[Rfam]
RNA sequence: ACACGGAAGGGAGGUGGUCCGAGACAUGAAGUCUUUCCGGACGCGUGAGGUGGCUGCCCGCUAGCCGCCCGAGUCAUCGGACGGACUGCUCGAUCCGCUCAUGCUCCGCCGGCACAGCCGGCAGGGCGGCAGGCGAGUACCGGCAGUCACCGCAGCCCGUGGGAGCCGCGACCUCGUCCCUCGCGGCAGGGCCCCGUCAGGGGUCCGGCCCACGGGCUGUUCCCU
Number, nucleotide and partner (000 for none) at each position: 001a000002c000003a000004c000005g000006g000007a000008a000009g000010g000011g000012a000013g058014g057015u056016g055017g054018u053019c000020c000021g000022a000023g000024a000025c000026a000027u000028g000029a000030a000031g000032u000033c000034u000035u000036u000037c000038c000039g000040g000041a000042c000043g000044c000045g000046u000047g000048a000049g000050g000051u000052g000053g018054c017055u016056g015057c014058c013059c135060g134061c133062u132063a000064g130065c129066c000067g127068c126069c125070c124071g000072a000073g122074u121075c120076a000077u000078c000079g000080g000081a000082c000083g000084g000085a000086c000087u000088g000089c000090u000091c000092g000093a000094u000095c000096c000097g000098c000099u000100c000101a000102u000103g000104c000105u000106c000107c000108g000109c000110c000111g000112g000113c000114a000115c000116a000117g000118c000119c000120g075121g074122c073123a000124g070125g069126g068127c067128g000129g065130c064131a000132g062133g061134c060135g059136a000137g000138u000139a000140c000141c000142g000143g000144c000145a000146g000147u000148c000149a000150c000151c000152g000153c219154a218155g217156c216157c215158c214159g213160u212161g211162g210163g209164a000165g000166c186167c185168g184169c183170g182171a181172c000173c000174u000175c000176g000177u000178c000179c000180c000181u171182c170183g169184c168185g167186g166187c000188a000189g000190g000191g000192c000193c000194c000195c000196g000197u000198c000199a000200g000201g000202g000203g000204u000205c000206c000207g000208g000209c163210c162211c161212a160213c159214g158215g157216g156217c155218u154219g153220u000221u000222c000223c000224c000225u000